[Rfam]
RNA sequence: GCCGGGGGACGACCCCCCGCACUCGCUCAGUUCUUUGCGGGGGGACGGCCCCC
Numbered sequence: 001g002c003c004g005g006g007g008g009a010c011g012a013c014c015c016c017c018c019g020c021a022c023u024c025g026c027u028c029a030g031u032u033c034u035u036u037g038c039g040g041g042g043g044g045a046c047g048g049c050c051c052c053c
Stems, first nucleotide, its partner, number of pairs: 001020002004017005040053005
RNA: Guanidine-II riboswitch aptamer (mini-ykkC)